[Rfam]
RNA sequence: UAUUAAGUUAUCUUCAAGACUCGUAUAUUUUUGGAAAUAUGGUCCAAAUGUCUCUACCUGCUAACCGUAAAUCAGCAGACUACGAUAAGAAUAACGAAGCAU
Numbered sequence: 001u002a003u004u005a006a007g008u009u010a011u012c013u014u015c016a017a018g019a020c021u022c023g024u025a026u027a028u029u030u031u032u033g034g035a036a037a038u039a040u041g042g043u044c045c046a047a048a049u050g051u052c053u054c055u056a057c058c059u060g061c062u063a064a065c066c067g068u069a070a071a072u073c074a075g076c077a078g079a080c081u082a083c084g085a086u087a088a089g090a091a092u093a094a095c096g097a098a099g100c101a102u
Stems, first nucleotide, its partner, number of pairs: 021085005030048006058078005064072001
The family of this 102-nucleotide RNA from Culicoidibacter larvae is "Purine riboswitch aptamer". The base pairs follow the family's consensus structure, which is taken from published work. NCBI's taxonomy places the organism under Bacteria, Culicoidibacteria, Culicoidibacterales, Culicoidibacteraceae, Culicoidibacter. It scores 76 bits against the family's covariance model.